Shown here is a 74-nucleotide sequence from Oryzias sinensis, a member of the family "mir-30 microRNA precursor family".
On this family, see Lagos-Quintana et al., Science 2001: "Identification of novel genes coding for small expressed RNAs".
Rfam describes the family as follows. This family consists of the mammalian microRNA (miRNA) precursor mir-30a. Animal miRNAs are transcribed as ~70nt precursors and subsequently processed by the Dicer enzyme to give a ~22nt product. In this case the mature sequence comes from both the 3' (miR-30) and 5' (mir-97-6) arms of the precursor.
RNA sequence: UUUGGGGUUGUAAACAUCCCCGACUGGAAGCUGUUUCUGCGCAGAGCUUUCAGUCUGAUGUUUGCAGCUGCAGG
Number, nucleotide and partner (000 for none) at each position: 001u000002u073003u072004g071005g000006g069007g000008u067009u066010g065011u064012a063013a062014a061015c060016a059017u058018c057019c000020c000021c000022g000023a054024c053025u052026g051027g050028a049029a048030g047031c046032u045033g000034u000035u000036u000037c000038u000039g000040c000041g000042c000043a000044g000045a032046g031047c030048u029049u028050u027051c026052a025053g024054u023055c000056u000057g018058a017059u016060g015061u014062u013063u012064g011065c010066a009067g008068c000069u006070g000071c004072a003073g002074g000